[Rfam]
RNA sequence: GUCUCACGACAGGGGAGCGCCAGCAGGGGCGCUGAGAGUGCAGAUCAUGCUGCAGACCCUCGAACCUGAUGCGGCUAGCACCGCCGAAGGAAGUCGAGACUCUUCUACC
Number, nucleotide and partner (000 for none) at each position: 001g000002u000003c000004u000005c000006a000007c096008g095009a094010c093011a060012g059013g058014g057015g000016a000017g032018c031019g030020c029021c028022a000023g000024c000025a000026g000027g000028g021029g020030c019031g018032c017033u000034g000035a000036g000037a000038g000039u054040g053041c052042a051043g050044a000045u000046c000047a000048u000049g000050c043051u042052g041053c040054a039055g000056a000057c014058c013059c012060u011061c000062g000063a000064a000065c090066c089067u088068g000069a000070u000071g084072c083073g082074g081075c000076u000077a000078g000079c000080a000081c074082c073083g072084c071085c000086g000087a000088a067089g066090g065091a000092a000093g010094u009095c008096g007097a000098g000099a000100c000101u000102c000103u000104u000105c000106u000107a000108c000109c000
A member of the RNA family "TPP riboswitch aptamer (THI element)" from Brevibacterium casei, 109 nucleotides long.
From the family's description: Vitamin B(1) in its active form thiamin pyrophosphate (TPP) is an essential coenzyme that is synthesised by coupling of pyrimidine and thiazole moieties in bacteria. The previously detected thiamin-regulatory element, thi box was extended, resulting in a new, highly conserved RNA secondary structure, the THI element, which is widely distributed in eubacteria and also occurs in some archaea. Analysis of operon structures identified a large number of new candidate thiamin-regulated genes, mostly transporters, in various prokaryotic organisms.
The family's consensus secondary structure is taken from published work.
The match comes from Rfam's covariance-model search (62 bits).